[Rfam]
RNA sequence: UCGGGGCUUCGGCCCGACAGAUUGGGCGUCGCAGAGACGCUGCGACGCUGCUUGUAACCCAUGUUGCUUUACGGAGGAUAUGGCUAUGAGAA
Numbered sequence: 001u002c003g004g005g006g007c008u009u010c011g012g013c014c015c016g017a018c019a020g021a022u023u024g025g026g027c028g029u030c031g032c033a034g035a036g037a038c039g040c041u042g043c044g045a046c047g048c049u050g051c052u053u054g055u056a057a058c059c060c061a062u063g064u065u066g067c068u069u070u071a072c073g074g075a076g077g078a079u080a081u082g083g084c085u086a087u088g089a090g091a092a
Base pairs, nucleotide, nucleotide: 001017002016003015004014005013007012025049026048027047028046029045030044031043032042033041051090052089053088054087055086056085059083060082061081062080063079064078065077067076068075069074